[Rfam]
RNA sequence: AAAAAAACAGGCCUUCUCUUCUCAGUUCUUCUGGAGUAGGGAAAAGUUGGGUUGAGAGGGUGGGAAAAAACAAAA
Numbered sequence: 001a002a003a004a005a006a007a008c009a010g011g012c013c014u015u016c017u018c019u020u021c022u023c024a025g026u027u028c029u030u031c032u033g034g035a036g037u038a039g040g041g042a043a044a045a046g047u048u049g050g051g052u053u054g055a056g057a058g059g060g061u062g063g064g065a066a067a068a069a070a071c072a073a074a075a
Stems, first nucleotide, its partner, number of pairs: 014058005021051005029043004